[Rfam]
RNA sequence: CUACCACAUUUUCUACUGAUAAUAGAUUUUGGUGGCUAUGCUUAUGGGAUAGAUUAAAGUUGCCAUGAUCUGAAGAGAGAGGGCUUUGCAGUGUCCUCCCUCUAUAUGAAAUGGCUGGACAGUA
Numbered sequence: 001c002u003a004c005c006a007c008a009u010u011u012u013c014u015a016c017u018g019a020u021a022a023u024a025g026a027u028u029u030u031g032g033u034g035g036c037u038a039u040g041c042u043u044a045u046g047g048g049a050u051a052g053a054u055u056a057a058a059g060u061u062g063c064c065a066u067g068a069u070c071u072g073a074a075g076a077g078a079g080a081g082g083g084c085u086u087u088g089c090a091g092u093g094u095c096c097u098c099c100c101u102c103u104a105u106a107u108g109a110a111a112u113g114g115c116u117g118g119a120c121a122g123u124a
Base pairs, nucleotide, nucleotide: 004035005034006033007032062115063114064113065112080103081102082101083100